Shown here is a 131-nucleotide RNA from Motilibacter peucedani, a member of the family "FMN riboswitch aptamer (RFN element)". A search with the family's covariance model found it, with a score of 82 bits. A reference for the family is Vitreschak et al. (2002), "Regulation of riboflavin biosynthesis and transport genes in bacteria by transcriptional and translational attenuation", Nucleic Acids Res.
[Rfam]
RNA sequence: ACGCGUGCCCCGGGGUCGGUGCAAUUCCGAACCGGCGGUGACAGUCCGCGACCCGGCCGCAGCCAGCGGCCGGUUGACCCGGUGCAACUCCGGGACCGACGGUGAGAGUCCGGACGGGAGGCGGCACGCGG
Numbered sequence: 001a002c003g004c005g006u007g008c009c010c011c012g013g014g015g016u017c018g019g020u021g022c023a024a025u026u027c028c029g030a031a032c033c034g035g036c037g038g039u040g041a042c043a044g045u046c047c048g049c050g051a052c053c054c055g056g057c058c059g060c061a062g063c064c065a066g067c068g069g070c071c072g073g074u075u076g077a078c079c080c081g082g083u084g085c086a087a088c089u090c091c092g093g094g095a096c097c098g099a100c101g102g103u104g105a106g107a108g109u110c111c112g113g114a115c116g117g118g119a120g121g122c123g124g125c126a127c128g129c130g131g
Stems, first nucleotide, its partner, number of pairs: 003129007010120001017029003031109002033098002035049004044096002053073002078094005100112003
Dot-bracket structure: ..((((((((......(((.......))).[[((((((.....[[))))...((.................))....(((((.......)))))]])).(((.....]]))).......)..)))))))..